[Rfam]
RNA: Glycine riboswitch aptamer
RNA sequence: CGGGCACGCGCGGGAGAGAGCGUUCCUCCAAGGACGCCGCCGAAGGAGCAACCACCCCGGAAUCUCUCAGGCACACGGGACCGCGCGCGCCAC
Numbered sequence: 001c002g003g004g005c006a007c008g009c010g011c012g013g014g015a016g017a018g019a020g021c022g023u024u025c026c027u028c029c030a031a032g033g034a035c036g037c038c039g040c041c042g043a044a045g046g047a048g049c050a051a052c053c054a055c056c057c058c059g060g061a062a063u064c065u066c067u068c069a070g071g072c073a074c075a076c077g078g079g080a081c082c083g084c085g086c087g088c089g090c091c092a093c
Stems, first nucleotide, its partner, number of pairs: 007087007020037004039072003042068002046066003052060002